[Rfam]
RNA sequence: ACCGCUGAGCCAUCUCUCCAGUCCCUAAAAAUACCUUUUUAAAAAUAAAAAAAAAAGGGGGGGGGGCUGGAGAGAUGGCUCAGCGGU
Numbered sequence: 001a002c003c004g005c006u007g008a009g010c011c012a013u014c015u016c017u018c019c020a021g022u023c024c025c026u027a028a029a030a031a032u033a034c035c036u037u038u039u040u041a042a043a044a045a046u047a048a049a050a051a052a053a054a055a056a057g058g059g060g061g062g063g064g065g066g067c068u069g070g071a072g073a074g075a076u077g078g079c080u081c082a083g084c085g086g087u
Stems, first nucleotide, its partner, number of pairs: 002086025
A member of the RNA family "mir-3473 microRNA precursor family" from Cricetulus griseus, 87 nucleotides long. Rfam links the family to the GO terms cellular response to mechanical stimulus, RISC complex and miRNA-mediated post-transcriptional gene silencing. NCBI's taxonomy places the organism under Eukaryota, Gnathostomata, Teleostomi, Euarchontoglires, Cricetulus. It scores 76 bits against the family's covariance model.